A member of the RNA family "Mammalian CPEB3 ribozyme" from Alligator sinensis, 77 nucleotides long. Taxonomically the source falls in Alligator (Eukaryota, Deuterostomia, Chordata, Crocodylia).
RNA sequence: GGUUACAAGUUUGAGGCCAUAGCAGAAUUACUCAUGGCAUGGCCCUGUCAGAGUCUAACAAAUCUGUGAAUUCUGUU
Numbered sequence: 001g002g003u004u005a006c007a008a009g010u011u012u013g014a015g016g017c018c019a020u021a022g023c024a025g026a027a028u029u030a031c032u033c034a035u036g037g038c039a040u041g042g043c044c045c046u047g048u049c050a051g052a053g054u055c056u057a058a059c060a061a062a063u064c065u066g067u068g069a070a071u072u073c074u075g076u077u
Stems, first nucleotide, its partner, number of pairs: 013045001015044004021077007029039001049066004054061001